Overview: The record is a 197-nucleotide sequence from Erinaceus europaeus, which matches "Small nucleolar RNA SNORA74" in Rfam. Its family is annotated with nucleolus and RNA processing in the Gene Ontology. On this family, see Bortolin and Kiss, RNA 1998: "Human U19 intron-encoded snoRNA is processed from a long primary transcript that possesses little potential for protein coding". By type it is an H/ACA-box small nucleolar RNA. Taxonomically the source falls in Erinaceus (Eukaryota, Eumetazoa, Dipnotetrapodomorpha, Laurasiatheria). About the family: U19 belongs to the H/ACA class of snoRNAs. snoRNAs bind a number of proteins (including dyskerin, Gar1p and Nop10p in the case of the H/ACA class) to form snoRNP complexes. This class are thought to guide the sites of modification of uridines to pseudouridines by forming direct base pairing interactions with substrate RNAs. The base pairs follow the family's consensus structure, which was predicted with PFOLD.

[Rfam]
RNA sequence: CCCAGUGGUUGUCAGCUACCAAGGCUAAUGUGCCUUGGGUGGUGUUACACUGCUGGAAGAGCAAUCAUUGCCUUGAAUGACGUAUGAGUCUGAGCACUGUUUUAGUGUGAUGACAGUACCUUGGGGCAAUGCCUUGCACCUCUUGAGAGUGGAAUGACUCCUCCUGUGGAGUUGGUCCUAGUCUGGGUGCAAACAUA
Numbered sequence: 001c002c003c004a005g006u007g008g009u010u011g012u013c014a015g016c017u018a019c020c021a022a023g024g025c026u027a028a029u030g031u032g033c034c035u036u037g038g039g040u041g042g043u044g045u046u047a048c049a050c051u052g053c054u055g056g057a058a059g060a061g062c063a064a065u066c067a068u069u070g071c072c073u074u075g076a077a078u079g080a081c082g083u084a085u086g087a088g089u090c091u092g093a094g095c096a097c098u099g100u101u102u103u104a105g106u107g108u109g110a111u112g113a114c115a116g117u118a119c120c121u122u123g124g125g126g127c128a129a130u131g132c133c134u135u136g137c138a139c140c141u142c143u144u145g146a147g148a149g150u151g152g153a154a155u156g157a158c159u160c161c162u163c164c165u166g167u168g169g170a171g172u173u174g175g176u177c178c179u180a181g182u183c184u185g186g187g188u189g190c191a192a193a194c195a196u197a
Stems, first nucleotide, its partner, number of pairs: 002056008011048002015043006021036005066131008079122002082119004089112001091110001093108001095107004134192008151178003155174007